[Rfam]
RNA sequence: AUUAUUCCGAUGGUCUGGAUCGGACCUUUCUCUGCAGUGAUAUUCCAAAAUCGUGGUUAUCACCGGGUGAAAACUGGUAGAGGUGCGAUCUAGCCGGGCCUU
Numbered sequence: 001a002u003u004a005u006u007c008c009g010a011u012g013g014u015c016u017g018g019a020u021c022g023g024a025c026c027u028u029u030c031u032c033u034g035c036a037g038u039g040a041u042a043u044u045c046c047a048a049a050a051u052c053g054u055g056g057u058u059a060u061c062a063c064c065g066g067g068u069g070a071a072a073a074c075u076g077g078u079a080g081a082g083g084u085g086c087g088a089u090c091u092a093g094c095c096g097g098g099c100c101u102u
Stems, first nucleotide, its partner, number of pairs: 016092007024078003027072004032067002035065001037063006
RNA: mir-36 microRNA precursor family